[Rfam]
RNA sequence: CUCUCGCCCGACAAAUCGCUAUCGAAGCUACAUACAGAGACUUUCAUUUGAUCGUCUCCUCUACUCCAAAAAGCUUUGGGAGAAAGUCCCCGGACGUUCCUUCUUCAGAAGGAAAUGCGGAAACGCGCCGCCAUAGAAGCACAGCGGCUUACUUCUCACUGCCUGUUCUUUGCUCCGUCUCGAUCUGCCCCGCCUGUCGCUACAUCGCUUAUCUUCUCUGUGUAUAGUUCUGGAUGCCACCAGCCUUGAGACCAUAUGGAUGAAGAUAUGAGUCCGCGCUCUUGGUUGGAGUAUCUCGGUUUUUUACACCCUUGAAGAUGAGUCGAUGACAGUUGGCCGUGGAUUGGGCGGACGGGAGCGCGAAGGGCAAGUGUAGAUCCAAUGUUGUCGAGAUCGAAAGUUAUGCGAUUGCCUUGCUUCGGCUUGGUUACUCGAUGGGGCUCAUUCUUGGUGCGAGG
Number, nucleotide and partner (000 for none) at each position: 001c000002u458003c457004u456005c455006g454007c453008c451009c450010g449011a448012c000013a000014a410015a409016u408017c407018g406019c405020u000021a000022u080023c078024g077025a076026a075027g074028c073029u000030a000031c000032a000033u000034a000035c000036a000037g058038a057039g056040a055041c054042u000043u000044u000045c000046a000047u000048u000049u000050g000051a000052u000053c000054g041055u040056c039057u038058c037059c000060u000061c000062u000063a000064c000065u000066c000067c000068a000069a000070a000071a000072a000073g028074c027075u026076u025077u024078g023079g000080g022081a000082g000083a000084a000085a442086g441087u000088c440089c439090c438091c437092g000093g000094a000095c000096g000097u000098u000099c000100c000101u000102u000103c000104u000105u000106c000107a000108g000109a000110a000111g000112g000113a000114a000115a000116u127117g126118c125119g124120g000121a000122a000123a000124c119125g118126c117127g116128c000129c000130g000131c000132c000133a000134u000135a000136g000137a000138a000139g000140c000141a000142c000143a000144g000145c000146g000147g000148c000149u000150u000151a000152c000153u000154u000155c000156u000157c000158a000159c000160u000161g000162c000163c000164u000165g000166u000167u000168c000169u000170u000171u000172g000173c000174u000175c000176c000177g000178u000179c000180u000181c000182g000183a000184u000185c000186u000187g000188c000189c000190c000191c000192g000193c000194c000195u000196g000197u000198c000199g000200c000201u000202a000203c000204a000205u000206c000207g000208c000209u000210u000211a000212u000213c000214u000215u000216c000217u000218c000219u000220g000221u000222g000223u000224a000225u000226a000227g000228u000229u000230c000231u000232g000233g000234a000235u000236g000237c000238c000239a000240c000241c000242a000243g000244c000245c000246u000247u000248g000249a000250g000251a000252c000253c000254a000255u000256a000257u000258g000259g000260a000261u000262g000263a000264a000265g000266a000267u000268a000269u000270g000271a000272g000273u000274c000275c000276g000277c000278g000279c000280u000281c000282u000283u000284g000285g000286u000287u000288g000289g000290a000291g000292u000293a000294u000295c000296u000297c000298g380299g379300u000301u377302u376303u000304u000305u000306a374307c373308a372309c371310c367311c366312u365313u364314g000315a000316a000317g000318a000319u000320g000321a000322g000323u000324c000325g000326a000327u000328g000329a000330c000331a000332g000333u000334u000335g000336g000337c000338c000339g000340u000341g000342g000343a000344u000345u000346g000347g000348g000349c000350g000351g000352a000353c000354g359355g000356g000357a000358g000359c354360g000361c000362g000363a000364a313365g312366g311367g310368c000369a000370a000371g309372u308373g307374u306375a000376g302377a301378u000379c299380c298381a000382a000383u000384g000385u000386u000387g000388u000389c000390g000391a000392g000393a000394u000395c000396g000397a000398a000399a000400g000401u000402u000403a000404u000405g019406c018407g017408a016409u015410u014411g000412c427413c426414u000415u000416g423417c422418u000419u000420c000421g000422g417423c416424u000425u000426g413427g412428u000429u000430a000431c000432u000433c000434g000435a000436u000437g091438g090439g089440g088441c086442u085443c000444a000445u000446u000447c000448u011449u010450g009451g008452u000453g007454c006455g005456a004457g003458g002